[Rfam]
RNA sequence: GGGGAGCUUCGGCGCCCUACACACCCGGGUCUGAAACCUCAGACCCCCCUAACGGAAGACAGAGA
Numbered sequence: 001g002g003g004g005a006g007c008u009u010c011g012g013c014g015c016c017c018u019a020c021a022c023a024c025c026c027g028g029g030u031c032u033g034a035a036a037c038c039u040c041a042g043a044c045c046c047c048c049c050u051a052a053c054g055g056a057a058g059a060c061a062g063a064g065a
Stems, first nucleotide, its partner, number of pairs: 001018004006013002027046007
RNA: L2-Alphaproteobacteria ribosomal protein leader